[Rfam]
RNA sequence: GUUGAAUAUGCGCUGAAUUUUCUUAGGAAAAACGGGGGAACCAAACUUGGCAUAUGUGCCAAUGGGGUGAAUCGGAAUGGGUCGAUUAGACUUAUACCGUAGGGCUAAACCACAGCCCGAAUCCGCCAGCUAACCUCGUAAGCAAAGGUGGGAUAAUGA
Number, nucleotide and partner (000 for none) at each position: 001g000002u000003u000004g000005a000006a000007u000008a000009u000010g000011c000012g143013c142014u141015g000016a000017a000018u031019u030020u029021u000022c000023u000024u000025a000026g000027g000028a000029a020030a019031a018032a139033c138034g137035g136036g135037g134038g000039a000040a000041c000042c064043a063044a000045a000046c000047u000048u000049g000050g000051c000052a000053u000054a000055u000056g000057u000058g000059c000060c000061a000062a000063u043064g042065g124066g123067g122068u000069g000070a000071a000072u000073c099074g098075g097076a000077a000078u000079g000080g000081g000082u000083c000084g000085a000086u000087u000088a000089g000090a000091c000092u000093u000094a000095u000096a000097c075098c074099g073100u000101a000102g118103g117104g116105c115106u000107a000108a000109a000110c000111c000112a000113c000114a000115g105116c104117c103118c102119g000120a000121a000122u067123c066124c065125g000126c000127c000128a000129g000130c000131u000132a000133a000134c037135c036136u035137c034138g033139u032140a000141a014142g013143c012144a000145a000146a000147g000148g000149u000150g000151g000152g000153a000154u000155a000156a000157u000158g000159a000
RNA: c-di-AMP riboswitch aptamer (ydaO/yuaA leader)
Organism: Paenibacillus sp. FSL H7-0737